[Rfam]
RNA sequence: CUGUUAUUAAAGGACGUUUUAGUGUGCGAUGGGGUUCAUACCUUUAUUUGCCAAAACGGGACCUCUUUUGAGGUAUAGAUUCUAACGAAUUGAAUAUUCCGUACUAAGGAUUUAAUCCGGAACGUCUAGAGACUACACGGCAAACCAUUGGUGGUGUGAAUGGAUAGUCCCUAGUGAACCAUCUAGGCAUCCCAUACAAAAUGGUUA
Numbered sequence: 001c002u003g004u005u006a007u008u009a010a011a012g013g014a015c016g017u018u019u020u021a022g023u024g025u026g027c028g029a030u031g032g033g034g035u036u037c038a039u040a041c042c043u044u045u046a047u048u049u050g051c052c053a054a055a056a057c058g059g060g061a062c063c064u065c066u067u068u069u070g071a072g073g074u075a076u077a078g079a080u081u082c083u084a085a086c087g088a089a090u091u092g093a094a095u096a097u098u099c100c101g102u103a104c105u106a107a108g109g110a111u112u113u114a115a116u117c118c119g120g121a122a123c124g125u126c127u128a129g130a131g132a133c134u135a136c137a138c139g140g141c142a143a144a145c146c147a148u149u150g151g152u153g154g155u156g157u158g159a160a161u162g163g164a165u166a167g168u169c170c171c172u173a174g175u176g177a178a179c180c181a182u183c184u185a186g187g188c189a190u191c192c193c194a195u196a197c198a199a200a201a202u203g204g205u206u207a
Stems, first nucleotide, its partner, number of pairs: 003205006012027001014025004029195006035160008050169001052167001056102004061081001062073003103125002131165001134140001144152003171186004

Notes: A member of the RNA family "GIR1 branching ribozyme" from Naegleria sp. NG647, 207 nucleotides long. The family's consensus secondary structure is taken from published work.